c-di-GMP-II-GAG riboswitch aptamer: a 100-nucleotide RNA sequence. Its Rfam clan is "c-di-GMP_II riboswitch clan". Its family is annotated with cyclic-di-GMP binding and regulation of gene expression in the Gene Ontology. It is one of the family's seed sequences.

[Rfam]
RNA sequence: UAAACGUGGGGACGUAUUGAUCCGCGACUGGUAACACGGUCACCGCCGCAGCGAUGCGGAUGGUCGCGGGGAGCGAGUGGUGAGACCGACCCCUUGUCGU
Numbered sequence: 001u002a003a004a005c006g007u008g009g010g011g012a013c014g015u016a017u018u019g020a021u022c023c024g025c026g027a028c029u030g031g032u033a034a035c036a037c038g039g040u041c042a043c044c045g046c047c048g049c050a051g052c053g054a055u056g057c058g059g060a061u062g063g064u065c066g067c068g069g070g071g072a073g074c075g076a077g078u079g080g081u082g083a084g085a086c087c088g089a090c091c092c093c094u095u096g097u098c099g100u
Stems, first nucleotide, its partner, number of pairs: 004097003008093004013075003022069008038087002040083005